RNA: Bacterial RNase P class A
Organism: Porphyromonas crevioricanis
RNA sequence: GCAGUAGACCGGUCUGUCGCUCCGACUUUAGAGAGUUGGGGAGGAACGUCCGGGCAACGUAGAGCACCACACUACCUAACGGGUAGCCGUUCGUGAGGGCAGAGUAGCGUAACAGAGAAGAACCGCCAUGGCUUGCCAUGGUAAGGGUGAAAAGGUGAGGUAAGAGCUCACCGGCAGGGUCAGCGAUGGCUCUGGCCGUACGCCUUGUGGGUUGUAAGAUCAUGUAUACCAACGUUUGAGGGUUGCUCGCCUGAGGUUGGGGGGUAGAUCGCUUGAUUCGCGAGGAGACUCGACGAACAGAUAAAUGACAGACACCGCUUAUUGCUUCGAGGAAGUCAAGUGGUACAGAACCCGGCUUAUAGGUCUACUGCUCUC
Numbered sequence: 001g002c003a004g005u006a007g008a009c010c011g012g013u014c015u016g017u018c019g020c021u022c023c024g025a026c027u028u029u030a031g032a033g034a035g036u037u038g039g040g041g042a043g044g045a046a047c048g049u050c051c052g053g054g055c056a057a058c059g060u061a062g063a064g065c066a067c068c069a070c071a072c073u074a075c076c077u078a079a080c081g082g083g084u085a086g087c088c089g090u091u092c093g094u095g096a097g098g099g100c101a102g103a104g105u106a107g108c109g110u111a112a113c114a115g116a117g118a119a120g121a122a123c124c125g126c127c128a129u130g131g132c133u134u135g136c137c138a139u140g141g142u143a144a145g146g147g148u149g150a151a152a153a154g155g156u157g158a159g160g161u162a163a164g165a166g167c168u169c170a171c172c173g174g175c176a177g178g179g180u181c182a183g184c185g186a187u188g189g190c191u192c193u194g195g196c197c198g199u200a201c202g203c204c205u206u207g208u209g210g211g212u213u214g215u216a217a218g219a220u221c222a223u224g225u226a227u228a229c230c231a232a233c234g235u236u237u238g239a240g241g242g243u244u245g246c247u248c249g250c251c252u253g254a255g256g257u258u259g260g261g262g263g264g265u266a267g268a269u270c271g272c273u274u275g276a277u278u279c280g281c282g283a284g285g286a287g288a289c290u291c292g293a294c295g296a297a298c299a300g301a302u303a304a305a306u307g308a309c310a311g312a313c314a315c316c317g318c319u320u321a322u323u324g325c326u327u328c329g330a331g332g333a334a335g336u337c338a339a340g341u342g343g344u345a346c347a348g349a350a351c352c353c354g355g356c357u358u359a360u361a362g363g364u365c366u367a368c369u370g371c372u373c374u375c
Stems, first nucleotide, its partner, number of pairs: 001371010011360001012313007020041009046358001048356001050355005055214004062248004067210005072086005087102001089100004103205002107203005123146002125142007154172006174196001175194008218270004229260005240252004277296002281292004